Annotation:
Purine riboswitch aptamer: a 103-nucleotide RNA from Gracilibacillus kekensis. About the family: Riboswitches are metabolite binding domains within certain messenger RNAs that serve as precision sensors for their corresponding targets. Gene Ontology term of the family: purine nucleobase biosynthetic process. NCBI's taxonomy places the organism under Bacteria, Bacillati, Bacillota, Bacillaceae, Gracilibacillus. It scores 77 bits against the family's covariance model. Pairs were carried over by alignment from the consensus structure, which is taken from published work.

[Rfam]
RNA sequence: AAAUUAAUAAUAACCAUUCGUCGUAUAAUGUUGGGGAUAUGGCCCAAGAGUUUCUACCGAAGCACCGAAAUUUGCUUCGACUACGAGGAGGAUGAAAGUUACU
Numbered sequence: 001a002a003a004u005u006a007a008u009a010a011u012a013a014c015c016a017u018u019c020g021u022c023g024u025a026u027a028a029u030g031u032u033g034g035g036g037a038u039a040u041g042g043c044c045c046a047a048g049a050g051u052u053u054c055u056a057c058c059g060a061a062g063c064a065c066c067g068a069a070a071u072u073u074g075c076u077u078c079g080a081c082u083a084c085g086a087g088g089a090g091g092a093u094g095a096a097a098g099u100u101a102c103u
Base pairs, nucleotide, nucleotide: 018089019088021086022085023084024083025082029049031047032046033045034044035043058079059078060077061076062075063074064073
Clan: Purine riboswitches.